Source information
mir-399 microRNA precursor family: a 97-nucleotide RNA sequence from Oryza sativa. Lineage of the source: Eukaryota > Embryophyta > Tracheophyta > Oryzoideae > Oryza sativa. About the family: mir-399 was identified in both Arabidopsis thaliana and Oryza sativa computationally and was later experimentally verified. mir-399 is thought to target mRNAs coding for a phosphatase transporter. The mature sequence is excised from the 3' arm of the hairpin. The base pairs follow the family's consensus structure, which was predicted with PFOLD.

Nucleotides: 097
Stems, first nucleotide, its partner, number of pairs: 005093004011087003015083005021077004027071009
Number, partner (000 for none) and nucleotide at each position: 001000g002000u003000g004000a005093g006092a007091a008090u009000c010000a011087c012086a013085g014000u015083g016082c017081g018080a019079u020000u021077c022076u023075c024074c025000u026000c027071u028070g029069g030068c031067a032066u033065g034064g035063c036000a037000u038000g039000a040000g041000a042000g043000g044000c045000c046000u047000a048000a049000a050000a051000a052000a053000g054000a055000g056000a057000c058000g059000c060000a061000c062000u063035g064034c065033c066032g067031u068030g069029c070028c071027a072000a073000a074024g075023g076022a077021g078000a079019a080018u081017u082016g083015c084000c085013c086012u087011g088000c089000c090008a091007u092006u093005c094000a095000g096000a097000a